Rfam assigns this 109-nucleotide sequence from Kaistia soli to the family "Guanidine-I riboswitch aptamer". Gene Ontology term of the family: regulation of gene expression. About the family: This family represents a conserved RNA structure found upstream of the ykkC and yxkD genes in Bacillus subtilis and related genes in other bacteria. The function of this family is unclear although it has been suggested that it may function to switch on efflux pumps and detoxification systems in response to harmful environmental molecules. A reference for the family is Barrick et al. (2004), "New RNA motifs suggest an expanded scope for riboswitches in bacterial genetic control", Proc Natl Acad Sci U S A. The pairing is the family consensus, mapped onto this sequence.

[Rfam]
RNA sequence: UGAGUUGGUGGCUAGGGUUCCGGUUCCCGCGAGGGAGCGCUGGUCCGAGAGCUGCCGCCGGCGCGGGAGACAUCCGCGCCGGGCACGGCGGGAUAAAAUCCCGGGAGAC
Numbered sequence: 001u002g003a004g005u006u007g008g009u010g011g012c013u014a015g016g017g018u019u020c021c022g023g024u025u026c027c028c029g030c031g032a033g034g035g036a037g038c039g040c041u042g043g044u045c046c047g048a049g050a051g052c053u054g055c056c057g058c059c060g061g062c063g064c065g066g067g068a069g070a071c072a073u074c075c076g077c078g079c080c081g082g083g084c085a086c087g088g089c090g091g092g093a094u095a096a097a098a099u100c101c102c103g104g105g106a107g108a109c
Stems, first nucleotide, its partner, number of pairs: 007056006015046002020043002022040001023038006058082008084104001086107001090102003
Dot-bracket structure: ......((((((..((...(((((((((....)))))).).)).))....)))))).((((((((.........)))))))).(.[...(((.......))).)..]..